[Rfam]
RNA sequence: GAUCAGUGAUGAAAACAGCCAAAUGGGAGCAUCAGAAGACCUUCCAGUUAGUCUGAUGUAUGAUCCAUAGUGUUCCGAGA
Numbered sequence: 001g002a003u004c005a006g007u008g009a010u011g012a013a014a015a016c017a018g019c020c021a022a023a024u025g026g027g028a029g030c031a032u033c034a035g036a037a038g039a040c041c042u043u044c045c046a047g048u049u050a051g052u053c054u055g056a057u058g059u060a061u062g063a064u065c066c067a068u069a070g071u072g073u074u075c076c077g078a079g080a
Stems, first nucleotide, its partner, number of pairs: 029059005038049003
RNA: Small nucleolar RNA U2-19